[Rfam]
RNA: Selenocysteine transfer RNA
Organism: Geothermobacter hydrogeniphilus
RNA sequence: GGGAGUAGUUCGUAGGCUGGUGCCGCGCCCGGUCUUCAAAACCGGUGGGGGGCGUGAUCCGUCCCUGGUGGGUUCGAUUCCCAUCUACUCCC
Dot-bracket structure: ((((((((..(((.(((....)))))).(((((.......)))))..(((((.........)))))..((((.......)))).))))))))